[Rfam]
RNA: epsC RNA
Organism: Paenibacillus sambharensis
RNA sequence: AGGUAAUGUCUCCUUCACCUUUAUCAACGGAGGCACUCGGUCAUGCUGUGGGCCAGCCGGCCUUAGACGUUAAUCGUCAAGGGUGUGAUGUGAGGAGGGGUUUGAUGCCCU
Numbered sequence: 001a002g003g004u005a006a007u008g009u010c011u012c013c014u015u016c017a018c019c020u021u022u023a024u025c026a027a028c029g030g031a032g033g034c035a036c037u038c039g040g041u042c043a044u045g046c047u048g049u050g051g052g053c054c055a056g057c058c059g060g061c062c063u064u065a066g067a068c069g070u071u072a073a074u075c076g077u078c079a080a081g082g083g084u085g086u087g088a089u090g091u092g093a094g095g096a097g098g099g100g101u102u103u104g105a106u107g108c109c110c111u
Stems, first nucleotide, its partner, number of pairs: 001020004007035007036094004040089008050063005066078004097111005